[Rfam]
RNA sequence: AAGGCAAAUCGGUUUAUCGCUGUUCGUCAGAUGACGAAGAGAGGAAAGUCCGGGCAACGUAGAGCGGCGUACUUCCUAACGGGAAGGUAUUGCUCCGAUUCUGUCGGAGUGGUAACAGAAAGUGCAGCAGAAAAUAAGUAGCCUUCGGGUCAUAGUGAAAAGGUGAGGUAAGAGCUCACCGUGCAGGCAGUGAUGUACUGUAGCUAGGCAAACCUUACGCGUUGAAAGGCCAUGUAUACCGGGGAUUCACGUUCACCUUGUGUGGAUGUGUAAAAGGGUUGCUCGCCCGAUCCCGGAGGGUAGGCUGAUGGAUCCCGAUUGCGAAGUCGGGGCUAGAUAAAUGAUAAACAUCUGGUGGAAACACCGGAACAGAACCCGGCUUAUAGAUUUGCCUUUUCU
Numbered sequence: 001a002a003g004g005c006a007a008a009u010c011g012g013u014u015u016a017u018c019g020c021u022g023u024u025c026g027u028c029a030g031a032u033g034a035c036g037a038a039g040a041g042a043g044g045a046a047a048g049u050c051c052g053g054g055c056a057a058c059g060u061a062g063a064g065c066g067g068c069g070u071a072c073u074u075c076c077u078a079a080c081g082g083g084a085a086g087g088u089a090u091u092g093c094u095c096c097g098a099u100u101c102u103g104u105c106g107g108a109g110u111g112g113u114a115a116c117a118g119a120a121a122g123u124g125c126a127g128c129a130g131a132a133a134a135u136a137a138g139u140a141g142c143c144u145u146c147g148g149g150u151c152a153u154a155g156u157g158a159a160a161a162g163g164u165g166a167g168g169u170a171a172g173a174g175c176u177c178a179c180c181g182u183g184c185a186g187g188c189a190g191u192g193a194u195g196u197a198c199u200g201u202a203g204c205u206a207g208g209c210a211a212a213c214c215u216u217a218c219g220c221g222u223u224g225a226a227a228g229g230c231c232a233u234g235u236a237u238a239c240c241g242g243g244g245a246u247u248c249a250c251g252u253u254c255a256c257c258u259u260g261u262g263u264g265g266a267u268g269u270g271u272a273a274a275a276g277g278g279u280u281g282c283u284c285g286c287c288c289g290a291u292c293c294c295g296g297a298g299g300g301u302a303g304g305c306u307g308a309u310g311g312a313u314c315c316c317g318a319u320u321g322c323g324a325a326g327u328c329g330g331g332g333c334u335a336g337a338u339a340a341a342u343g344a345u346a347a348a349c350a351u352c353u354g355g356u357g358g359a360a361a362c363a364c365c366g367g368a369a370c371a372g373a374a375c376c377c378g379g380c381u382u383a384u385a386g387a388u389u390u391g392c393c394u395u396u397u398c399u
Base pairs, nucleotide, nucleotide: 001395002394003393004392005391006390007389008388009387010386011384012349013348014347015346016345017344018343020041021040023038024037025036026035027034028033046382047381048380050379051378052377053376054375055224056223057222058221062284063283064282065281067220068219069218070217071216072086073085074084075083076082087116088114089113090112091111092110093109094108095107096106097105098104099103117215118214122213123212124209125208139154140153141150142149143148162180163179164178165177166176167175181204182202183201184200185199186198187196188195189194228306229305230304231303239296240295241294242293243292276288277287278286279285313332314331315330316329317328318327319326320325

Rfam assigns this 399-nucleotide RNA from Taishania pollutisoli to the family "Bacterial RNase P class A". The family's RNA type in Rfam is ribozyme. A search with the family's covariance model found it, with a score of 244 bits. Ribonuclease P (RNase P) is a ubiquitous endoribonuclease, found in archaea, bacteria and eukarya as well as chloroplasts and mitochondria.